About this RNA: Shown here is a 99-nucleotide sequence, a member of the family "Bacterial small signal recognition particle RNA". It scores 47 bits against the family's covariance model. From the family's description: The signal recognition particle (SRP) is a universally conserved ribonucleoprotein involved in the co-translational targeting of proteins to membranes.
[Rfam]
RNA sequence: CCUUUAGACCUGUGCAAUAUUGCUAUUUGAGCAACGCUUCAGGGUGGGAACACAGCAGAGCACUCGCUAGUAGUAUGUGCCGCAGCCAUCUGGAGGAAG
Numbered sequence: 001c002c003u004u005u006a007g008a009c010c011u012g013u014g015c016a017a018u019a020u021u022g023c024u025a026u027u028u029g030a031g032c033a034a035c036g037c038u039u040c041a042g043g044g045u046g047g048g049a050a051c052a053c054a055g056c057a058g059a060g061c062a063c064u065c066g067c068u069a070g071u072a073g074u075a076u077g078u079g080c081c082g083c084a085g086c087c088a089u090c091u092g093g094a095g096g097a098a099g
Base pairs, nucleotide, nucleotide: 004093005092006091007090008089010085011084012083013082014081015077017076018075019074020073021072022071028066029065030064031063036061037060038059039058044053045052046051